Rfam assigns this 41-nucleotide sequence from Natronoglycomyces albus to the family "L31-Actinobacteria ribosomal protein leader".
NCBI's taxonomy places the organism under Bacteria, Actinomycetota, Glycomycetales, Glycomycetaceae, Natronoglycomyces.
Rfam classes the family as a cis-regulatory leader.
RNA sequence: CCGGUACCGGUUCACGCCACGCAAAUGGCGACCCGGCGACC
Numbered sequence: 001c002c003g004g005u006a007c008c009g010g011u012u013c014a015c016g017c018c019a020c021g022c023a024a025a026u027g028g029c030g031a032c033c034c035g036g037c038g039a040c041c
Stems, first nucleotide, its partner, number of pairs: 003041003007036004015030005